Notes: Rfam assigns this 91-nucleotide RNA from Nitrosococcus oceani to the family "t44 RNA". This family consists of a number of bacterial RNA genes of between 135 and 170 bases in length. The t44 gene has been identified in several species of enteric bacteria but homologs have also been identified in Pseudomonas and Coxiella species. The t44 gene is found between the map and rpsB genes in all species in the full alignment apart from Shigella flexneri. The function of this RNA is unknown.
RNA sequence: CUUUUAAAGCAAACAAAAUCACACGCGCAUCGGCACAUACUAUCGGGGUGCCUUUGGUCAGGUCGGUAUAUGGGAUGCGCGGAGGAAUAAC
Numbered sequence: 001c002u003u004u005u006a007a008a009g010c011a012a013a014c015a016a017a018a019u020c021a022c023a024c025g026c027g028c029a030u031c032g033g034c035a036c037a038u039a040c041u042a043u044c045g046g047g048g049u050g051c052c053u054u055u056g057g058u059c060a061g062g063u064c065g066g067u068a069u070a071u072g073g074g075a076u077g078c079g080c081g082g083a084g085g086a087a088u089a090a091c
Stems, first nucleotide, its partner, number of pairs: 024081008036072004042067004050063004
Lineage of the source: Bacteria > Gammaproteobacteria > Chromatiaceae > Nitrosococcus > Nitrosococcus oceani. Rfam's curators put it in the seed alignment. By type it is a small RNA.